[Rfam]
RNA sequence: GCAUCUCCACACCCUGCACCAGGCAGGGGCCGCCCUUAAGGGCGGCCCCUGCCUGGUGCAUGGUGUGGAGAUGCUG
Numbered sequence: 001g002c003a004u005c006u007c008c009a010c011a012c013c014c015u016g017c018a019c020c021a022g023g024c025a026g027g028g029g030c031c032g033c034c035c036u037u038a039a040g041g042g043c044g045g046c047c048c049c050u051g052c053c054u055g056g057u058g059c060a061u062g063g064u065g066u067g068g069a070g071a072u073g074c075u076g
Stems, first nucleotide, its partner, number of pairs: 001074012015060006022053003026049007034041002
The family of this 76-nucleotide RNA sequence from Scenedesmus sp. NREL 46B-D3 is "mir-2756 microRNA precursor family".
Rfam 15.1 lists 31 matches to the family in 20 species.
A search with the family's covariance model found it, with a score of 62 bits.